[Rfam]
RNA sequence: UUAAAAUUAACGAGCGAUUGUCAGCCUAGUCGCUUGUGUUCUUUGGCUUCAAAGUGACUAGACCGAACACUCGUGCAAUAAUUUUAGAA
Number, nucleotide and partner (000 for none) at each position: 001u000002u000003a000004a000005a000006a000007u000008u000009a000010a000011c000012g000013a000014g076015c075016g074017a000018u000019u069020g068021u067022c065023a000024g063025c000026c000027u060028a059029g058030u057031c056032g000033c054034u053035u000036g000037u000038g000039u000040u000041c000042u000043u000044u000045g000046g000047c000048u000049u000050c000051a000052a000053a034054g033055u000056g031057a030058c029059u028060a027061g000062a000063c024064c000065g022066a000067a021068c020069a019070c000071u000072c000073g000074u016075g015076c014077a000078a000079u000080a000081a000082u000083u000084u000085u000086a000087g000088a000089a000
mir-286 microRNA precursor family: an 89-nucleotide sequence from Megaselia scalaris. On this family, see Li et al., BMC Genomics 2009: "Direct sequencing and expression analysis of a large number of miRNAs in Aedes aegypti and a multispecies survey of novel mosquito miRNAs". The family has 15 seed sequences and 37 matches in Rfam 15.1.